[Rfam]
RNA sequence: ACCUUGUUGUUAAGCAGUGUGUUAAAAUGACAAAAAAGUAGGAUCAUGUCUUGGAUUUUGUAAGAAUGCUAAGAGAUUUCUCAGAACAAAAGUAGUUGCAUUGGAUCCCAAACACUAGAGUGAACCUCUUUCUUAAUAUCAAGUGCCUUAAUAUUUGGUGAAAUGUGU
Numbered sequence: 001a002c003c004u005u006g007u008u009g010u011u012a013a014g015c016a017g018u019g020u021g022u023u024a025a026a027a028u029g030a031c032a033a034a035a036a037a038g039u040a041g042g043a044u045c046a047u048g049u050c051u052u053g054g055a056u057u058u059u060g061u062a063a064g065a066a067u068g069c070u071a072a073g074a075g076a077u078u079u080c081u082c083a084g085a086a087c088a089a090a091a092g093u094a095g096u097u098g099c100a101u102u103g104g105a106u107c108c109c110a111a112a113c114a115c116u117a118g119a120g121u122g123a124a125c126c127u128c129u130u131u132c133u134u135a136a137u138a139u140c141a142a143g144u145g146c147c148u149u150a151a152u153a154u155u156u157g158g159u160g161a162a163a164u165g166u167g168u
Base pairs, nucleotide, nucleotide: 017077018076020074022072023071024070027067028066034058035057039053040052041051042050043049044048097162099160100159101158102157103156104155105154119144121142124139
A member of the RNA family "Small nucleolar RNA SNORA81" from Mesocricetus auratus, 168 nucleotides long. The literature on the family includes a 2005 paper in Nucleic Acids Res by Gu et al., "A novel experimental approach for systematic identification of box H/ACA snoRNAs from eukaryotes". NCBI's taxonomy places the organism under Eukaryota, Chordata, Teleostomi, Boreoeutheria, Mesocricetus. Rfam classes the family as an H/ACA-box small nucleolar RNA. Rfam 15.1 lists 1,161 matches to the family in 643 species. Its family is annotated with RNA processing and nucleolus in the Gene Ontology.